[Rfam]
RNA sequence: AACCACACUAUCGAUGAAUGGAUUCACACAUGAGAUGACGUGGUUGUUUUAUCUAGAUGAUGACGUGGCAUCCUAUUAAUUUCAUGGGAUGGCUAGUAAUAAGAUGCCAUGUUCUCGUCCUAGUUGAAACAGUCACAUCAUCUCGCGGGUGAAUUCAUUCAUUGAUAGUGCGGUU
Numbered sequence: 001a002a003c004c005a006c007a008c009u010a011u012c013g014a015u016g017a018a019u020g021g022a023u024u025c026a027c028a029c030a031u032g033a034g035a036u037g038a039c040g041u042g043g044u045u046g047u048u049u050u051a052u053c054u055a056g057a058u059g060a061u062g063a064c065g066u067g068g069c070a071u072c073c074u075a076u077u078a079a080u081u082u083c084a085u086g087g088g089a090u091g092g093c094u095a096g097u098a099a100u101a102a103g104a105u106g107c108c109a110u111g112u113u114c115u116c117g118u119c120c121u122a123g124u125u126g127a128a129a130c131a132g133u134c135a136c137a138u139c140a141u142c143u144c145g146c147g148g149g150u151g152a153a154u155u156c157a158u159u160c161a162u163u164g165a166u167a168g169u170g171c172g173g174u175u
Stems, first nucleotide, its partner, number of pairs: 001175004006170002009167007017159003021155007031145003035141004041135008051125001054122002056119002062113003068107005074101005
RNA: MIR807 microRNA precursor family